[Rfam]
RNA sequence: UGUGAAAGCCAGCACUGUGUGUGUGUGUGUGUGAUCCAAGCCACACACACACACACAGUGCUGGCUUUCUGC
Number, nucleotide and partner (000 for none) at each position: 001u000002g000003u000004g069005a068006a067007a000008g000009c064010c063011a062012g061013c060014a059015c058016u057017g056018u000019g000020u000021g052022u051023g050024u049025g048026u047027g044028u043029g042030u000031g000032u000033g000034a000035u000036c000037c000038a000039a000040g000041c000042c029043a028044c027045a000046c000047a026048c025049a024050c023051a022052c021053a000054c000055a000056c017057a016058g015059u014060g013061c012062u011063g010064g009065c000066u000067u006068u005069c004070u000071g000072c000
RNA: mir-11 microRNA precursor family
Organism: Mastacembelus armatus